RNA sequence: GACCUGUCACAACGGCUUCCUGGCGUGGCAGCGUUAUCCAAUGGAGCA
Numbered sequence: 001g002a003c004c005u006g007u008c009a010c011a012a013c014g015g016c017u018u019c020c021u022g023g024c025g026u027g028g029c030a031g032c033g034u035u036a037u038c039c040a041a042u043g044g045a046g047c048a
Base pairs, nucleotide, nucleotide: 004031005030006029007028008027009026010025013022014021015047016046017045019044020043
RNA: SAM/SAH riboswitch aptamer
Organism: Roseivivax isoporae